[Rfam]
RNA sequence: GGAUGAACAAAUUGUAAGUCGCUCUGAAUAAGAGUGUCUGCUAAAUGACUGAAA
Numbered sequence: 001g002g003a004u005g006a007a008c009a010a011a012u013u014g015u016a017a018g019u020c021g022c023u024c025u026g027a028a029u030a031a032g033a034g035u036g037u038c039u040g041c042u043a044a045a046u047g048a049c050u051g052a053a054a
Base pairs, nucleotide, nucleotide: 013043014041015040016039020036021035022034023033024032025031
RNA: UnaL2 LINE 3' element
Organism: Oncorhynchus kisutch